[Rfam]
RNA sequence: GGAGGAUUACCCAAGUCUGGCUGAAGGGAACGGUCUUGAAAACCGUCAGGCGGGUCAAACCGCGCAAGGGUUCGAAUCCCUUAUCCUCCU
Dot-bracket structure: (((((((..(((.............))).(((((.......)))))...................(((((.......)))))))))))).
Numbered sequence: 001g002g003a004g005g006a007u008u009a010c011c012c013a014a015g016u017c018u019g020g021c022u023g024a025a026g027g028g029a030a031c032g033g034u035c036u037u038g039a040a041a042a043c044c045g046u047c048a049g050g051c052g053g054g055u056c057a058a059a060c061c062g063c064g065c066a067a068g069g070g071u072u073c074g075a076a077u078c079c080c081u082u083a084u085c086c087u088c089c090u
Stems, first nucleotide, its partner, number of pairs: 001089007010028003030046005066082005
A member of the RNA family "tRNA" from Aerococcus sp. Group 1, 90 nucleotides long. The match comes from Rfam's covariance-model search (53 bits).